[Rfam]
RNA sequence: GAAAGCCAGUCUCAAAACAAAGACAGACAGGCUGCUUGCAGACUAGGCUGUCUUUGUUUUAGAGACGCUAACCCGUAUGAGUACGAGGGAUGCCGUAGGCAGACCGAAAAGUACGAAUACGGGUAGGAUGGCGGGAGUGCCUCUGCACAAAGCCAUCCGUGGCUUUC
Number, nucleotide and partner (000 for none) at each position: 001g167002a166003a165004a164005g163006c162007c161008a000009g000010u065011c064012u063013c062014a060015a059016a058017a057018c056019a055020a054021a053022g052023a051024c050025a049026g048027a000028c046029a000030g043031g000032c041033u040034g039035c000036u000037u000038g000039c034040a033041g032042a000043c030044u000045a000046g028047g000048c026049u025050g024051u023052c022053u021054u020055u019056g018057u017058u016059u015060u014061a000062g013063a012064g011065a010066c000067g000068c000069u000070a000071a124072c123073c122074c121075g120076u119077a118078u117079g000080a000081g114082u113083a112084c111085g000086a000087g000088g105089g104090a000091u101092g100093c099094c098095g000096u000097a000098g094099g093100c092101a091102g000103a000104c089105c088106g000107a000108a000109a000110a000111g084112u083113a082114c081115g000116a000117a078118u077119a076120c075121g074122g073123g072124u071125a000126g158127g157128a156129u155130g154131g153132c152133g000134g000135g000136a000137g148138u147139g146140c145141c000142u000143c000144u000145g140146c139147a138148c137149a000150a000151a000152g132153c131154c130155a129156u128157c127158c126159g000160u000161g007162g006163c005164u004165u003166u002167c001

Clostridiales-1 RNA: a 167-nucleotide sequence from Catenibacillus scindens. The base pairs follow the family's consensus structure, which is taken from published work. NCBI's taxonomy places the organism under Bacteria, Bacillota, Clostridia, Lachnospiraceae, Catenibacillus.